[Rfam]
RNA: Ribosomal protein L20 leader
Organism: Ureibacillus manganicus
RNA sequence: UGGUUGAAGUAGAGGCUGCCCGCUUCUCACCUGGAAUGACGCAUUUGCUGUUAGCAGGUAUUACACGUUGAAUUAUAUACGCAUAAUUGCGUAUGCACAUAUAGCGGGCGGACAUCUUCUAAUAUGUCCGUCCUUUUUUUAUGGA
Numbered sequence: 001u002g003g004u005u006g007a008a009g010u011a012g013a014g015g016c017u018g019c020c021c022g023c024u025u026c027u028c029a030c031c032u033g034g035a036a037u038g039a040c041g042c043a044u045u046u047g048c049u050g051u052u053a054g055c056a057g058g059u060a061u062u063a064c065a066c067g068u069u070g071a072a073u074u075a076u077a078u079a080c081g082c083a084u085a086a087u088u089g090c091g092u093a094u095g096c097a098c099a100u101a102u103a104g105c106g107g108g109c110g111g112a113c114a115u116c117u118u119c120u121a122a123u124a125u126g127u128c129c130g131u132c133c134u135u136u137u138u139u140u141a142u143g144g145a
Stems, first nucleotide, its partner, number of pairs: 011027006029059003038052003041048002107132009